[Rfam]
RNA sequence: GGUCAUGAGUACCAGCGCAAAGCCCCGGCUAGCUGGUCGGCAACCCUCCACCGCGGUGGGGUGCCCCGGGUGAUGACCGGGUUUCCUGAUCCAUAUAGACAUUCGGGUAACAAGCGCAGGUC
Numbered sequence: 001g002g003u004c005a006u007g008a009g010u011a012c013c014a015g016c017g018c019a020a021a022g023c024c025c026c027g028g029c030u031a032g033c034u035g036g037u038c039g040g041c042a043a044c045c046c047u048c049c050a051c052c053g054c055g056g057u058g059g060g061g062u063g064c065c066c067c068g069g070g071u072g073a074u075g076a077c078c079g080g081g082u083u084u085c086c087u088g089a090u091c092c093a094u095a096u097a098g099a100c101a102u103u104c105g106g107g108u109a110a111c112a113a114g115c116g117c118a119g120g121u122c
Stems, first nucleotide, its partner, number of pairs: 001078004009038001011037006021030002039065003044061003048056002081111003085107005
RNA: SAM (S-adenosyl methionine) riboswitch aptamer